[Rfam]
RNA sequence: AACCUUCUGUAUCCGUGCUAAGAUUUCAUCACAUACCAGACCACAAGGGCUGAUGAGAUUCUCAAGAUAAGUGAAGGG
Numbered sequence: 001a002a003c004c005u006u007c008u009g010u011a012u013c014c015g016u017g018c019u020a021a022g023a024u025u026u027c028a029u030c031a032c033a034u035a036c037c038a039g040a041c042c043a044c045a046a047g048g049g050c051u052g053a054u055g056a057g058a059u060u061c062u063c064a065a066g067a068u069a070a071g072u073g074a075a076g077g078g
Stems, first nucleotide, its partner, number of pairs: 003076001005074002008071001010069004016064002021060002024058007
This 78-nucleotide RNA sequence from Schistosoma margrebowiei belongs to the Rfam family "mir-3492 microRNA precursor family". Pairs were carried over by alignment from the consensus structure, which was predicted with RNAalifold. Rfam links the family to the GO terms miRNA-mediated post-transcriptional gene silencing and RISC complex. It scores 72 bits against the family's covariance model.